[Rfam]
A member of the RNA family "Eukaryotic large subunit ribosomal RNA" from Onychostoma macrolepis, 472 nucleotides of a longer RNA.

RNA sequence: GGUAGUAGCAAAUAUUCAAACGAGAGCUUUGAAGGCCGAAGUGGAGAAGGGUUCCAUGUGAACAGCAGUUGAACAUGGGUCAGUCGGUCCUAAGGGAUGGGCGAACGCCGUUCGGAAGGGAGGGGCGAUGGCCUCCGUCGCCCCCGGCCGAUCGAAAGGGAGUCUGGUUCAGAUCCCAGAACCCGGAGUGGCGGAGACGGGCGCCGCGAGGCGCCCAGUGCGGUAACGCAAACGAACCCGGAGAAGCUGGCGGGGGCCCCGGGAAGAGUUCUCUUUUCUUUGUGAAGGGCCGGGCACCCUGGAAUGGGUUCGUCCCGAGAGAGGGGCCCACGCCCUGGAAAGCGCCGCGGUUCCGGCGGCGUCCGGUGAGCUCUCGUCGGCCCUUGAAAAUCCGGGGGAGAAGGUGUAAGUCUCGCGCCGGGCCGUACCCAUAUCCGCAGCAGGUCUCCAAGGUGAACAGCCUCUGGCGUGU
Numbered sequence: 001g002g003u004a005g006u007a008g009c010a011a012a013u014a015u016u017c018a019a020a021c022g023a024g025a026g027c028u029u030u031g032a033a034g035g036c037c038g039a040a041g042u043g044g045a046g047a048a049g050g051g052u053u054c055c056a057u058g059u060g061a062a063c064a065g066c067a068g069u070u071g072a073a074c075a076u077g078g079g080u081c082a083g084u085c086g087g088u089c090c091u092a093a094g095g096g097a098u099g100g101g102c103g104a105a106c107g108c109c110g111u112u113c114g115g116a117a118g119g120g121a122g123g124g125g126c127g128a129u130g131g132c133c134u135c136c137g138u139c140g141c142c143c144c145c146g147g148c149c150g151a152u153c154g155a156a157a158g159g160g161a162g163u164c165u166g167g168u169u170c171a172g173a174u175c176c177c178a179g180a181a182c183c184c185g186g187a188g189u190g191g192c193g194g195a196g197a198c199g200g201g202c203g204c205c206g207c208g209a210g211g212c213g214c215c216c217a218g219u220g221c222g223g224u225a226a227c228g229c230a231a232a233c234g235a236a237c238c239c240g241g242a243g244a245a246g247c248u249g250g251c252g253g254g255g256g257c258c259c260c261g262g263g264a265a266g267a268g269u270u271c272u273c274u275u276u277u278c279u280u281u282g283u284g285a286a287g288g289g290c291c292g293g294g295c296a297c298c299c300u301g302g303a304a305u306g307g308g309u310u311c312g313u314c315c316c317g318a319g320a321g322a323g324g325g326g327c328c329c330a331c332g333c334c335c336u337g338g339a340a341a342g343c344g345c346c347g348c349g350g351u352u353c354c355g356g357c358g359g360c361g362u363c364c365g366g367u368g369a370g371c372u373c374u375c376g377u378c379g380g381c382c383c384u385u386g387a388a389a390a391u392c393c394g395g396g397g398g399a400g401a402a403g404g405u406g407u408a409a410g411u412c413u414c415g416c417g418c419c420g421g422g423c424c425g426u427a428c429c430c431a432u433a434u435c436c437g438c439a440g441c442a443g444g445u446c447u448c449c450a451a452g453g454u455g456a457a458c459a460g461c462c463u464c465u466g467g468c469g470u471g472u
Stems, first nucleotide, its partner, number of pairs: 015033006035468003043449004049429002054078006063071002085425003089159002094153002096112003100109003119145002163180005183421004207415005219230004237396006246381004251376007259366003263281005286336005297325004305317004343361006435444002451463004
Its family is annotated with structural constituent of ribosome and ribosome in the Gene Ontology. The base pairs follow the family's consensus structure, which is taken from published work.